[Rfam]
RNA sequence: AACGACGUCAGCCAAACCCAUCGCGAGGUGGGGACGGAAAGCCACGGGUCCCAAGCGGACAGCCGGGUUGCCUUU
Dot-bracket structure: ...........((...((((((....))))))...))..((((.((((((.......)))..)))))))......
The family of this 75-nucleotide RNA from Geomesophilobacter sediminis is "c-di-GMP-I riboswitch aptamer".
The match comes from Rfam's covariance-model search (56 bits).
Taxonomically the source falls in Geomesophilobacter (Bacteria, Pseudomonadati, Desulfuromonadia, Geobacteraceae).
About the family: GEMM was predicted in a large-scale screen for bacterial structured RNA regulatory elements.